[Rfam]
Source information: A member of the RNA family "TPP riboswitch aptamer (THI element)", 108 nucleotides long. It scores 64 bits against the family's covariance model.

RNA sequence: ACGUGGCAUGACGGGUGUUCAAGGAUUGCUUUUGCAAGACUUGAUCUGAGAAAUACCGUUGAACUUGAUCUGGAUAAUACCAGCGAAAGGACAUGCUACGUUUUUUUU
Numbered sequence: 001a002c003g004u005g006g007c008a009u010g011a012c013g014g015g016u017g018u019u020c021a022a023g024g025a026u027u028g029c030u031u032u033u034g035c036a037a038g039a040c041u042u043g044a045u046c047u048g049a050g051a052a053a054u055a056c057c058g059u060u061g062a063a064c065u066u067g068a069u070c071u072g073g074a075u076a077a078u079a080c081c082a083g084c085g086a087a088a089g090g091a092c093a094u095g096c097u098a099c100g101u102u103u104u105u106u107u108u
Stems, first nucleotide, its partner, number of pairs: 006096005011059004016053001017046001019044005064089003070083004